[Rfam]
RNA sequence: AACACGAUAGGCGAUGGAGUUCGCCAUAACCGCCCUUUGGGCUGAUGACUCCUACCAGUUU
Numbered sequence: 001a002a003c004a005c006g007a008u009a010g011g012c013g014a015u016g017g018a019g020u021u022c023g024c025c026a027u028a029a030c031c032g033c034c035c036u037u038u039g040g041g042c043u044g045a046u047g048a049c050u051c052c053u054a055c056c057a058g059u060u061u
Stems, first nucleotide, its partner, number of pairs: 010025004016052006032042003

Fluoride riboswitch aptamer (crcB RNA motif): a 61-nucleotide sequence from Paenibacillus yonginensis. Lineage of the source: Bacteria > Bacillati > Bacilli > Paenibacillaceae > Paenibacillus.